small nucleolar RNA snoR114: an 88-nucleotide sequence from Miscanthus lutarioriparius. It is annotated as a C/D-box small nucleolar RNA. Its family is annotated with nucleolus and RNA processing in the Gene Ontology. NCBI's taxonomy places the organism under Eukaryota, Embryophyta, Mesangiospermae, Poales, Miscanthus. It scores 48 bits against the family's covariance model. The base pairs follow the family's consensus structure, which was predicted with RNAalifold.

RNA sequence: GAGCAAUGAUUAAACCCUGUGCUUAUGUGAAUGGUUGGGUCCGUCACACUGACUGAUCUCAUGAUUAGCUGUCAGCACAUAUGAGCUC
Numbered sequence: 001g002a003g004c005a006a007u008g009a010u011u012a013a014a015c016c017c018u019g020u021g022c023u024u025a026u027g028u029g030a031a032u033g034g035u036u037g038g039g040u041c042c043g044u045c046a047c048a049c050u051g052a053c054u055g056a057u058c059u060c061a062u063g064a065u066u067a068g069c070u071g072u073c074a075g076c077a078c079a080u081a082u083g084a085g086c087u088c
Base pairs, nucleotide, nucleotide: 001088002087003086004085